[Rfam]
RNA sequence: AGUUACUUAAGCCAACCGUACAGAAACUUUGCUCGAUAGAAGAGUUUGUUCGUUUGGCUCGAGUUAUGC
Numbered sequence: 001a002g003u004u005a006c007u008u009a010a011g012c013c014a015a016c017c018g019u020a021c022a023g024a025a026a027c028u029u030u031g032c033u034c035g036a037u038a039g040a041a042g043a044g045u046u047u048g049u050u051c052g053u054u055u056g057g058c059u060c061g062a063g064u065u066a067u068g069c
Stems, first nucleotide, its partner, number of pairs: 002067002005064004010059004017052002020049004027044004